About this RNA:
Shown here is a 333-nucleotide RNA from Peptostreptococcus russellii, a member of the family "Bacterial RNase P class A". NCBI's taxonomy places the organism under Bacteria, Clostridia, Peptostreptococcales, Peptostreptococcaceae, Peptostreptococcus. A search with the family's covariance model found it, with a score of 273 bits. Rfam describes the family as follows. Ribonuclease P (RNase P) is a ubiquitous endoribonuclease, found in archaea, bacteria and eukarya as well as chloroplasts and mitochondria.
[Rfam]
RNA sequence: UGAGUACAGCAGAUGAUCGCAGGUAGAAAUACGUGAGGAAAGUCGGAGCACCAUAGAGCAGGGUGCUAGGUAACGCCUAGUGAGAGCAAUCUUAAGGAUAGUGCAACAGAGAGAUACCGCCAGCAAUGGUAAGGGUGGAAAGGCGAGGUAAGAGCUCACCAGCAUAUAGGUGACUAUAUGGCUAUGUAAACCCCACCUGGUGCAAGGCCAAGAACGGAUUAAGAGAUGUUGCUCGCAUCUCCCAGAAGGUAGGCCGCUUGAGUCUAUUGGUGACAAUAGACCUAGAAAGAUGAUCGUCUAAUACAGAACUCCGCUUACAGCUGUGCUUAAUAA
Number, nucleotide and partner (000 for none) at each position: 001u329002g328003a327004g326005u325006a324007c323008a322009g321010c320011a000012g298013a297014u296015g295016a294017u293018c292019g000020c035021a034022g000023g032024u031025a030026g000027a000028a000029a000030u025031a024032c023033g000034u021035g020036a000037g000038g000039a000040a316041a315042g314043u000044c313045g312046g311047a310048g309049c202050a201051c200052c199053a000054u000055a000056g234057a233058g232059c231060a000061g198062g197063g196064u195065g194066c080067u079068a078069g077070g076071u000072a000073a000074c000075g000076c070077c069078u068079a067080g066081u095082g093083a092084g091085a090086g000087c000088a000089a000090u085091c084092u083093u082094a000095a081096g193097g192098a000099u000100a000101g191102u190103g187104c186105a185106a000107c000108a000109g000110a000111g000112a000113g000114a000115u000116a000117c134118c133119g130120c129121c128122a127123g000124c000125a000126a000127u122128g121129g120130u119131a000132a000133g118134g117135g000136u000137g000138g000139a000140a000141a000142g160143g159144c000145g157146a156147g155148g000149u000150a000151a000152g000153a000154g000155c147156u146157c145158a000159c143160c142161a000162g182163c180164a179165u178166a177167u176168a175169g174170g000171u000172g000173a000174c169175u168176a167177u166178a165179u164180g163181g000182c162183u000184a000185u105186g104187u103188a000189a000190a102191c101192c097193c096194c065195a064196c063197c062198u061199g052200g051201u050202g049203c000204a000205a000206g255207g254208c253209c252210a000211a000212g000213a000214a000215c000216g000217g243218a000219u000220u000221a000222a000223g000224a000225g239226a238227u237228g236229u235230u000231g059232c058233u057234c056235g229236c228237a227238u226239c225240u000241c000242c000243c217244a000245g000246a000247a000248g000249g000250u000251a000252g209253g208254c207255c206256g000257c000258u000259u000260g000261a000262g281263u280264c279265u278266a277267u276268u275269g274270g000271u000272g000273a000274c269275a268276a267277u266278a265279g264280a263281c262282c000283u000284a000285g000286a000287a000288a000289g000290a000291u000292g018293a017294u016295c015296g014297u013298c012299u000300a000301a000302u000303a000304c000305a000306g000307a000308a000309c048310u047311c046312c045313g044314c042315u041316u040317a000318c000319a000320g010321c009322u008323g007324u006325g005326c004327u003328u002329a001330a000331u000332a000333a000